Rfam assigns this 105-nucleotide RNA from Motilibacter rhizosphaerae to the family "SAM (S-adenosyl methionine) riboswitch aptamer". Rfam's curators write: SAM-IV is a mRNA element that regulates gene expression via direct sensing of S-adenosylmethionine (SAM or AdoMet). Taxonomically the source falls in Motilibacter (Bacteria, Actinomycetota, Actinomycetes, Motilibacteraceae). A reference for the family is Weinberg et al. (2008), "The aptamer core of SAM-IV riboswitches mimics the ligand-binding site of SAM-I riboswitches", RNA. The base pairs follow the family's consensus structure, which is taken from published work.
RNA sequence: CGUCACGAGCGCCAGCGACAAGCCCCGGCUAGCUGGCCGGCAACCCUCCGACCGCGGCGGGGUGCCCCGGGUGAGGACACGGCCGCACCGCGGCAAGCGCGGGUC
Dot-bracket structure: .(((....(.((((((....((......)).)))))))(((..(((.((......))..))).))).........)))...(((((...)))))...........
Numbered sequence: 001c002g003u004c005a006c007g008a009g010c011g012c013c014a015g016c017g018a019c020a021a022g023c024c025c026c027g028g029c030u031a032g033c034u035g036g037c038c039g040g041c042a043a044c045c046c047u048c049c050g051a052c053c054g055c056g057g058c059g060g061g062g063u064g065c066c067c068c069g070g071g072u073g074a075g076g077a078c079a080c081g082g083c084c085g086c087a088c089c090g091c092g093g094c095a096a097g098c099g100c101g102g103g104u105c
Stems, first nucleotide, its partner, number of pairs: 002078003009038001011037006021030002039066003044062003048057002082094005